A member of the RNA family "Purine riboswitch aptamer" from Clostridium novyi, 99 nucleotides long.
Rfam's curators put it in the seed alignment.
RNA sequence: ACAGAAUAUUAAUCACGUACUCAUAUAAGCCCAGAAAUAAGGUCGGGCGUUUCUACCAAAUACCGUAAAUAUUUGACUAUGAGUAGUCUAGUGUAAAUU
Numbered sequence: 001a002c003a004g005a006a007u008a009u010u011a012a013u014c015a016c017g018u019a020c021u022c023a024u025a026u027a028a029g030c031c032c033a034g035a036a037a038u039a040a041g042g043u044c045g046g047g048c049g050u051u052u053c054u055a056c057c058a059a060a061u062a063c064c065g066u067a068a069a070u071a072u073u074u075g076a077c078u079a080u081g082a083g084u085a086g087u088c089u090a091g092u093g094u095a096a097a098u099u
Stems, first nucleotide, its partner, number of pairs: 018085008029048004034044002057075006
Lineage of the source: Bacteria > Bacillota > Clostridia > Clostridium > Clostridium novyi. On this family, see Batey et al., Nature 2004: "Structure of a natural guanine-responsive riboswitch complexed with the metabolite hypoxanthine".